The family of this 78-nucleotide RNA sequence from Candidatus Vecturithrix granuli is "c-di-GMP-I riboswitch aptamer". About the family: GEMM was predicted in a large-scale screen for bacterial structured RNA regulatory elements. Genes associated with GEMM are involved in a diverse array of functions, including chemotaxis regulation, signal transduction, secretion and chitin. The family is grouped with related families in Rfam's "c-di-GMP_I riboswitch clan".

[Rfam]
RNA sequence: UACUGCAAAAGCCCAACCUGCUGUGAAGCAGGGAGUGGAAAGCUACGGGUCUUUAAACAAGAUCGUCGGGGUGUCUGU
Numbered sequence: 001u002a003c004u005g006c007a008a009a010a011g012c013c014c015a016a017c018c019u020g021c022u023g024u025g026a027a028g029c030a031g032g033g034a035g036u037g038g039a040a041a042g043c044u045a046c047g048g049g050u051c052u053u054u055a056a057a058c059a060a061g062a063u064c065g066u067c068g069g070g071g072u073g074u075c076u077g078u
Base pairs, nucleotide, nucleotide: 012038013037017032018031019030020029021028022027041072043070044069046068047067048066049063050062051061052057